Background
This 84-nucleotide RNA from Aneurinibacillus migulanus belongs to the Rfam family "c-di-GMP-I riboswitch aptamer".
RNA sequence: UGUUGAAAAAGGCAAACUUAUUGAAAAAUAAGGACGCAAAACUAUAGGGGCUUCUAUCGUUAGAUAUGCCAGCCAGUUGCCAGG
Numbered sequence: 001u002g003u004u005g006a007a008a009a010a011g012g013c014a015a016a017c018u019u020a021u022u023g024a025a026a027a028a029u030a031a032g033g034a035c036g037c038a039a040a041a042c043u044a045u046a047g048g049g050g051c052u053u054c055u056a057u058c059g060u061u062a063g064a065u066a067u068g069c070c071a072g073c074c075a076g077u078u079g080c081c082a083g084g
Base pairs, nucleotide, nucleotide: 012037013036017032018031019030020029021028022027040078041077042076043075047074048073049070050069051068053064054063055062056061